[Rfam]
RNA: Molybdenum/Tungsten riboswitch aptamer (Moco RNA motif)
Organism: Mitsuokella sp. oral taxon 131
Nucleotides: 124
Base pairs, nucleotide, nucleotide: 004117013108014107015106016105019054020053021052022051023050024049025048026047027046028045029044033041034040035039057082058081059080061078062077063076064075065074067072083101084100
Number, partner (000 for none) and nucleotide at each position: 001000g002000u003000u004117u005000g006000a007000a008000u009000g010000u011000a012000a013108c014107u015106c016105c017000g018000a019054g020053c021052g022051c023050g024049u025048a026047u027046g028045g029044c030000u031000a032000a033041g034040g035039c036000a037000a038000u039035g040034c041033u042000a043000u044029g045028c046027c047026g048025u049024g050023c051022g052021c053020g054019u055000c056000g057082g058081g059080g060000c061078c062077u063076c064075g065074g066000g067072g068000g069000a070000a071000a072067c073000g074065c075064c076063g077062a078061g079000a080059c081058c082057u083101u084100c085000c086000g087000c088000c089000g090000c091000a092000a093000g094000g095000g096000c097000a098000u099000u100084g101083a102000a103000a104000a105016g106015g107014a108013g109000c110000a111000g112000a113000a114000c115000c116000g117004a118000u119000c120000g121000g122000u123000a124000c